[Rfam]
Nucleotides: 121
Base pairs, nucleotide, nucleotide: 011111014107015106016105017104018103019102023098024097025096026095027094028093029092030091031090032089033088034087035086036085
Number, partner (000 for none) and nucleotide at each position: 001000c002000u003000u004000a005000c006000a007000g008000a009000g010000a011111u012000c013000u014107u015106u016105g017104g018103c019102a020000u021000u022000c023098u024097g025096u026095c027094c028093a029092c030091c031090u032089c033088c034087u035086c036085u037000c038000u039000c040000u041000a042000u043000a044000u045000u046000u047000a048000u049000g050000u051000g052000u053000a054000a055000u056000a057000a058000g059000u060000g061000u062000a063000c064000g065000u066000a067000u068000c069000u070000a071000c072000g073000g074000u075000g076000u077000g078000u079000u080000u081000c082000g083000u084000a085036a086035g087034a088033g089032g090031a091030g092029g093028u094027g095026g096025g097024c098023a099000u100000a101000c102019u103018g104017c105016c106015a107014a108000u109000a110000g111011a112000g113000a114000u115000c116000u117000g118000u119000u120000a121000g
This 121-nucleotide RNA belongs to the Rfam family "MIR394 microRNA precursor family". Rfam 15.1 lists 724 matches to the family in 216 species. Rfam links the family to the GO terms RISC complex and miRNA-mediated post-transcriptional gene silencing.